RNA sequence: UUGGGUAGCUGAAUUAGAGAUCGGCGCCUGUACAUUUAUCUUAAAAUUUGGAGUAGUAAAAUGUCUCUAAGUGCAGAAAACAAAGCGCAGAUCGUUGCUGAUUACGGCCGUGAUGCU
Numbered sequence: 001u002u003g004g005g006u007a008g009c010u011g012a013a014u015u016a017g018a019g020a021u022c023g024g025c026g027c028c029u030g031u032a033c034a035u036u037u038a039u040c041u042u043a044a045a046a047u048u049u050g051g052a053g054u055a056g057u058a059a060a061a062u063g064u065c066u067c068u069a070a071g072u073g074c075a076g077a078a079a080a081c082a083a084a085g086c087g088c089a090g091a092u093c094g095u096u097g098c099u100g101a102u103u104a105c106g107g108c109c110g111u112g113a114u115g116c117u
Stems, first nucleotide, its partner, number of pairs: 008025005047071007
RNA: Ribosomal S15 leader